[Rfam]
RNA sequence: ACCGAAAAAAGCAAAACCAGAGAGAUCUGGUGACGCAAAGCCACGGAUCCGAUACAGGACAGCCGGGUUGCCGAAG
Number, nucleotide and partner (000 for none) at each position: 001a000002c000003c073004g072005a000006a000007a000008a000009a000010a000011g036012c035013a000014a000015a000016a031017c030018c029019a028020g027021a026022g000023a000024g000025a000026u021027c020028u019029g018030g017031u016032g000033a000034c062035g012036c011037a000038a000039a069040g068041c067042c066043a000044c065045g064046g063047a000048u059049c058050c000051g000052a000053u000054a000055c000056a000057g000058g049059a048060c000061a000062g034063c046064c045065g044066g042067g041068u040069u039070g000071c000072c004073g003074a000075a000076g000
A member of the RNA family "c-di-GMP-I-GGC riboswitch aptamer" from Desulfuromonas sp. AOP6, 76 nucleotides long. A search with the family's covariance model found it, with a score of 60 bits.